This 44-nucleotide RNA sequence from Halalkalibacter suaedae belongs to the Rfam family "PreQ1 (pre queuosine) riboswitch aptamer". This family is a bacterial riboswitch that binds to the metabolite preQ1, an intermediate in the biosynthesis of the modified nucleoside queuosine from GTP. One example of this riboswitch is located in the leader of the Bacillus subtilis ykvJKLM (queCDEF) operon which encodes four genes necessary for queuosine production. PreQ1 binding to the riboswitch aptamer is thought to induce premature transcription termination within the leader to down-regulate expression of these genes.
RNA sequence: AAGAAAGAGGUUCGCAAACUCCCUCUAUAAAAAACUAAGGUGGC
Numbered sequence: 001a002a003g004a005a006a007g008a009g010g011u012u013c014g015c016a017a018a019c020u021c022c023c024u025c026u027a028u029a030a031a032a033a034a035c036u037a038a039g040g041u042g043g044c
Base pairs, nucleotide, nucleotide: 006026007025008024009023010022016036

Pairs were carried over by alignment from the consensus structure.